Shown here is a 67-nucleotide sequence from Flavobacterium fontis, a member of the family "Flavo-1 RNA". Rfam classes the family as a small RNA. Lineage of the source: Bacteria > Pseudomonadati > Flavobacteriales > Flavobacteriaceae > Flavobacterium. A search with the family's covariance model found it, with a score of 46 bits.
[Rfam]
RNA sequence: AUUCAGCCCCGAUGGAAGCGGCAUCCCCCGAUGGCAAUCGGGGAUAUAGCGGACAGCGGGUGGGUAU
Dot-bracket structure: ........(((.((...((...((((.(((((....)))))))))...))...)).)))........